This 73-nucleotide RNA sequence from Myripristis murdjan belongs to the Rfam family "mir-21 microRNA precursor family". Lineage of the source: Eukaryota > Opisthokonta > Eurypterygia > Myripristinae > Myripristis. For this family Rfam cites "Discovery and profiling of bovine microRNAs from immune-related and embryonic tissues" (Coutinho et al., Physiol Genomics, 2007).
[Rfam]
RNA sequence: UGUCAGCUAGCUUAUCAGACUGGUGUUGGCUGUUAAAUUGCCACGGCAACAACGGUCUGUAGGCUGGCUGAAG
Dot-bracket structure: .......((((((((..(((((.(((((.(..............).))))).))))).)))))))).......
Numbered sequence: 001u002g003u004c005a006g007c008u009a010g011c012u013u014a015u016c017a018g019a020c021u022g023g024u025g026u027u028g029g030c031u032g033u034u035a036a037a038u039u040g041c042c043a044c045g046g047c048a049a050c051a052a053c054g055g056u057c058u059g060u061a062g063g064c065u066g067g068c069u070g071a072a073g
Stems, first nucleotide, its partner, number of pairs: 008066008018057005024051005030045001